[Rfam]
The record is a 442-nucleotide RNA sequence from Oscillatoria sp. FACHB-1406, which matches "Bacterial RNase P class A" in Rfam. Rfam classes the family as a ribozyme. The source organism's lineage runs through Bacteria, Bacillati, Cyanophyceae, Oscillatoriophycideae and Oscillatoria. Its family is annotated with ribonuclease P activity, dimeric ribonuclease P complex and tRNA processing in the Gene Ontology.
Nucleotides: 442
Stems, first nucleotide, its partner, number of pairs: 001438008012389007020044005026038003049426003053423005058293004067325002072288003076285002078092005093107001094105004108283002113281002115277003129224002131220007139212001232250006252272001253270007297346003307337001309335002312332001316331002319328001353372008
Number, partner (000 for none) and nucleotide at each position: 001438a002437g003436a004435g005434u006433u007432a008431g009000c010000g011000a012389g013388a014387a015386g016385g017384u018383u019000g020044c021043a022042g023041g024040c025000a026038g027037g028036c029000u030000u031000u032000u033000u034000a035000a036028g037027u038026c039000a040024g041023c042022u043021u044020g045000a046000g047000g048000a049426a050425a051424g052000u053423c054422c055421g056420g057419a058293c059292u060291c061290c062000c063000g064000a065000a066000a067325g068324a069000c070000c071000g072288a073287g074286c075000u076285u077284g078092c079091u080090g081089g082088g083000u084000a085000a086000c087000g088082c089081c090080c091079a092078g093107u094105g095104c096103g097102c098000g099000c100000g101000a102097g103096c104095g105094c106000g107093a108283g109282g110000a111000g112000a113281g114280u115277g116276c117275c118000a119000c120000a121000g122000a123000a124000a125000c126000a127000u128000a129224c130223c131220g132219c133218c134217u135216u136215u137214u138000u139212g140000a141000c142000c143000g144000u145000u146000c147000c148000c149000a150000c151000g152000a153000u154000u155000c156000a157000u158000g159000c160000a161000a162000c163000a164000g165000u166000u167000c168000c169000c170000a171000g172000c173000c174000g175000c176000u177000u178000a179000a180000g181000c182000u183000g184000a185000u186000a187000a188000c189000c190000g191000a192000u193000c194000g195000c196000u197000g198000a199000u200000g201000a202000c203000u204000g205000a206000u207000a208000a209000c210000g211000a212139c213000u214137a215136a216135a217134a218133g219132g220131u221000a222000a223130g224129g225000g226000u227000g228000c229000a230000a231000a232250g233249g234248u235247g236246c237245g238000g239000u240000a241000a242000g243000a244000g245237c246236g247235c248234a249233c250232c251000a252272g253270c254269a255268g256267u257266a258265u259264c260000g261000a262000g263000a264259g265258g266257u267256g268255c269254u270253g271000g272252c273000u274000c275117g276116g277115u278000a279000a280114a281113c282109c283108c284077c285076g286074g287073c288072u289000g290061g291060g292059a293058g294000c295000a296000a297346g298345g299344u300000c301000g302000g303000a304000g305000g306000g307337a308000c309335a310334a311000g312332g313000g314000u315000u316331g317330g318000u319328c320000u321000u322000u323000u324068u325067c326000c327000c328319g329000u330317c331316c332312c333000g334310u335309u336000u337307u338000a339000g340000g341000c342000g343000u344299a345298c346297c347000g348000c349000a350000a351000c352000a353372g354371g355370u356369g357368u358367c359366u360365g361000g362000u363000g364000a365360c366359a367358g368357a369356c370355a371354u372353c373000g374000c375000a376000g377000a378000u379000a380000g381000a382000u383018a384017a385016c386015c387014u388013u389012c390000c391000u392000c393000c394000u395000c396000u397000u398000c399000u400000c401000g402000u403000u404000a405000a406000g407000a408000g409000g410000g411000g412000a413000a414000c415000a416000g417000a418000a419057u420056c421055c422054g423053g424051c425050u426049u427000a428000c429000g430000u431008c432007u433006a434005a435004c436003u437002c438001u439000c440000u441000u442000c